[Rfam]
RNA sequence: UAAGGCUGAGGUAGUAGAUUGCAUAGUUGUGAGGCUCACACCCUCCUUUAGUGAUAACUGUGCAAUCUACUGUCUUUCUUGG
Numbered sequence: 001u002a003a004g005g006c007u008g009a010g011g012u013a014g015u016a017g018a019u020u021g022c023a024u025a026g027u028u029g030u031g032a033g034g035c036u037c038a039c040a041c042c043c044u045c046c047u048u049u050a051g052u053g054a055u056a057a058c059u060g061u062g063c064a065a066u067c068u069a070c071u072g073u074c075u076u077u078c079u080u081g082g
Stems, first nucleotide, its partner, number of pairs: 001082001003080003008076020032044003046053001

let-7 microRNA precursor family: an 82-nucleotide RNA from Nothobranchius furzeri. The match comes from Rfam's covariance-model search (65 bits). Rfam's curators write: This family represents the microRNAs (miRNA) let-7 and mir-98. let-7 was identified from a study of developmental timing in C. elegans, and was later shown to be part of a much larger class of non-coding RNAs termed miRNAs. The base pairs follow the family's consensus structure, which was predicted with RNAalifold. The literature on the family includes a 2018 paper in Cell by Liu et al., "Cryo-EM Structure of Human Dicer and Its Complexes with a Pre-miRNA Substrate". NCBI's taxonomy places the organism under Eukaryota, Vertebrata, Euteleostomi, Percomorphaceae, Nothobranchius.